[Rfam]
RNA: Glycine riboswitch aptamer
RNA sequence: CCUCGCUUCGCAGGAGAGAGGGGCCGGCUUAAAGUAUGGUUCCCGCCGAAGGCGCAAACUCCCAUAAUCGCUCAGGCAUCGUAACUGCGAAACGUAU
Numbered sequence: 001c002c003u004c005g006c007u008u009c010g011c012a013g014g015a016g017a018g019a020g021g022g023g024c025c026g027g028c029u030u031a032a033a034g035u036a037u038g039g040u041u042c043c044c045g046c047c048g049a050a051g052g053c054g055c056a057a058a059c060u061c062c063c064a065u066a067a068u069c070g071c072u073c074a075g076g077c078a079u080c081g082u083a084a085c086u087g088c089g090a091a092a093c094g095u096a097u
Stems, first nucleotide, its partner, number of pairs: 007091007020043007045077003048073002052071003058065001